[Rfam]
RNA sequence: GGCGUAAAGGGUGCGUAGGCGGCUAUGCGAGUUAAGCGUGAAAGCCUUAGGCUCAACCUAAGGAUUGCGCUUAAUACUGCAUAGCUUGAGUGCGGGAGAGGACGGCGGAAUUCCCGGUGUAGCGGUGAAAUGCGUAGAUAUCGGGAGGAACACCAGUGGCGAAGGCGGCCGUCUGGACCGUAACUGACGCUGAGGCACGAAAGCGUGGGGAGCGAACAGGAUUAGAUACCCUGGUAGUCCACGCUGUAAACGAUGGAUGCUAGGUGUGGGGGAGAAGGACUCCUCCGUGCCGUAGUUAACACAAUAAGCAUCCCGCCUGGGGAGUACGGCCGCAAGGUUGAAACUCAAAGGAAU
Numbered sequence: 001g002g003c004g005u006a007a008a009g010g011g012u013g014c015g016u017a018g019g020c021g022g023c024u025a026u027g028c029g030a031g032u033u034a035a036g037c038g039u040g041a042a043a044g045c046c047u048u049a050g051g052c053u054c055a056a057c058c059u060a061a062g063g064a065u066u067g068c069g070c071u072u073a074a075u076a077c078u079g080c081a082u083a084g085c086u087u088g089a090g091u092g093c094g095g096g097a098g099a100g101g102a103c104g105g106c107g108g109a110a111u112u113c114c115c116g117g118u119g120u121a122g123c124g125g126u127g128a129a130a131u132g133c134g135u136a137g138a139u140a141u142c143g144g145g146a147g148g149a150a151c152a153c154c155a156g157u158g159g160c161g162a163a164g165g166c167g168g169c170c171g172u173c174u175g176g177a178c179c180g181u182a183a184c185u186g187a188c189g190c191u192g193a194g195g196c197a198c199g200a201a202a203g204c205g206u207g208g209g210g211a212g213c214g215a216a217c218a219g220g221a222u223u224a225g226a227u228a229c230c231c232u233g234g235u236a237g238u239c240c241a242c243g244c245u246g247u248a249a250a251c252g253a254u255g256g257a258u259g260c261u262a263g264g265u266g267u268g269g270g271g272g273a274g275a276a277g278g279a280c281u282c283c284u285c286c287g288u289g290c291c292g293u294a295g296u297u298a299a300c301a302c303a304a305u306a307a308g309c310a311u312c313c314c315g316c317c318u319g320g321g322g323a324g325u326a327c328g329g330c331c332g333c334a335a336g337g338u339u340g341a342a343a344c345u346c347a348a349a350g351g352a353a354u
Base pairs, nucleotide, nucleotide: 001317002316003315009314011198012197013196014195016192018191019190020189022085023084024083025082026081027080028079030078031077032074033073034072035071036070037069038068039067040066045063046062047061048060049059050058051057089185090184091183092181093180094179095178100174101173102172103171104170105169106168107151111147112146113145114144115143116142117141118140122133123132124131159166160165203244204243205242206241207240208239212238213237217233218232219231220230255313256312257311258310259309260308263291264290265289266288267287268286269285270284271283272282273281274280295302296301319346320345321344328339329338330337331336

The family of this 354-nucleotide part of an RNA from Caldicellulosiruptor saccharolyticus is "Bacterial small subunit ribosomal RNA". The base pairs follow the family's consensus structure, which is taken from published work. Rfam's curators put it in the seed alignment. Taxonomically the source falls in Caldicellulosiruptor saccharolyticus (Bacteria, Bacillati, Caldicellulosiruptorales, Caldicellulosiruptoraceae).